Streptococcus sRNA SpF59 (ldcC RNA): a 74-nucleotide RNA sequence from Lactovum miscens. The source organism's lineage runs through Bacteria, Bacillota, Bacilli, Streptococcaceae and Lactovum. A reference for the family is Mann et al. (2012), "Control of virulence by small RNAs in Streptococcus pneumoniae", PLoS Pathog. The base pairs follow the family's consensus structure, which was predicted with mfold. By type it is a small RNA.
[Rfam]
RNA sequence: UGACCGCUCCUAUUUAAAAAUUUAUUUAGAUAGAUCAGAGCCAAGGCCAGACGGACAGCCGGGUCAAAAGCCGA
Numbered sequence: 001u002g003a004c005c006g007c008u009c010c011u012a013u014u015u016a017a018a019a020a021u022u023u024a025u026u027u028a029g030a031u032a033g034a035u036c037a038g039a040g041c042c043a044a045g046g047c048c049a050g051a052c053g054g055a056c057a058g059c060c061g062g063g064u065c066a067a068a069a070g071c072c073g074a
Base pairs, nucleotide, nucleotide: 001066002065003064004063005062006041007040008039009038